The family of this 123-nucleotide RNA sequence from Zhengella mangrovi is "Alphaproteobacterial ar14".
About the family: Smr14C2 was renamed NfeR1 (Nodule Formation Efficiency RNA) highly expressed in salt stress and during the symbiotic interaction on legume roots.
It scores 100 bits against the family's covariance model.
Taxonomically the source falls in Zhengella (Bacteria, Pseudomonadati, Hyphomicrobiales, Notoacmeibacteraceae).
Pairs were carried over by alignment from the consensus structure.
Rfam links the family to the GO term biological process involved in symbiotic interaction.
RNA sequence: AGGAAUUUCGGCAGGGCAUCCUCCUCCCAGUCCUGUCGAAACAGGGUUCGUGAUAUCCUCCUCCCAAUCGCGAACCUGACCAAAAGACACCCGCCGGACCUCCUCCCCCGGCGGGUGUUUUUU
Number, nucleotide and partner (000 for none) at each position: 001a000002g000003g000004a000005a000006u000007u040008u039009c038010g000011g036012c035013a034014g033015g032016g031017c030018a000019u000020c000021c000022u000023c000024c000025u000026c000027c000028c000029a000030g017031u016032c015033c014034u013035g012036u011037c000038g009039a008040a007041a000042c000043a000044g000045g076046g075047u074048u073049c072050g071051u070052g069053a068054u067055a000056u000057c000058c000059u000060c000061c000062u000063c000064c000065c000066a000067a054068u053069c052070g051071c050072g049073a048074a047075c046076c045077u000078g000079a000080c000081c000082a000083a000084a000085a000086g000087a118088c117089a116090c115091c114092c113093g112094c111095c110096g109097g108098a000099c000100c000101u000102c000103c000104u000105c000106c000107c000108c097109c096110g095111g094112c093113g092114g091115g090116u089117g088118u087119u000120u000121u000122u000123u000